A member of the RNA family "TPP riboswitch aptamer (THI element)" from Eubacterium sp. AF22-8LB, 97 nucleotides long.
RNA sequence: UAAAUAAAUCUGGGGAGCUAUUGCUGAGAGGAAGUUCGACUUCGACCCAUUAAACCUGACGGAUAAUGCCGGCGUAGGAAGUAUAGAUGUUUUUUUG
Numbered sequence: 001u002a003a004a005u006a007a008a009u010c011u012g013g014g015g016a017g018c019u020a021u022u023g024c025u026g027a028g029a030g031g032a033a034g035u036u037c038g039a040c041u042u043c044g045a046c047c048c049a050u051u052a053a054a055c056c057u058g059a060c061g062g063a064u065a066a067u068g069c070c071g072g073c074g075u076a077g078g079a080a081g082u083a084u085a086g087a088u089g090u091u092u093u094u095u096u097g
Base pairs, nucleotide, nucleotide: 007084010081011049012048013047014046017024018023031043032042033041034040035039055078056077057076058075060071061070062069
Dot-bracket structure: ......(..(((((..((....))......(((((...)))))..)))).....((((.(((......)))...))))..)..).............